mir-19 microRNA precursor family: a 79-nucleotide RNA from Menidia menidia.
Clan: mir-19 clan.
It scores 82 bits against the family's covariance model.
The organism belongs to Menidia, within Eukaryota.
Rfam links the family to the GO terms miRNA-mediated post-transcriptional gene silencing and RISC complex.
Nucleotides: 079
Stems, first nucleotide, its partner, number of pairs: 003077016020059002022056007031049003
Number, partner (000 for none) and nucleotide at each position: 001000u002000c003077g004076c005075c006074a007073g008072g009071u010070c011069a012068g013067u014066u015065u016064u017063g018062c019000u020059g021058g022056u023055u024054u025053g026052c027051a028050u029000c030000c031049a032048g033047c034000u035000u036000u037000a038000a039000c040000u041000g042000u043000g044000u045000u046000u047033g048032c049031u050028g051027u052026g053025c054024a055023a056022a057000u058021c059020c060000a061000u062018g063017c064016a065015a066014a067013a068012c069011u070010g071009a072008c073007u074006u075005g076004g077003u078000u079000g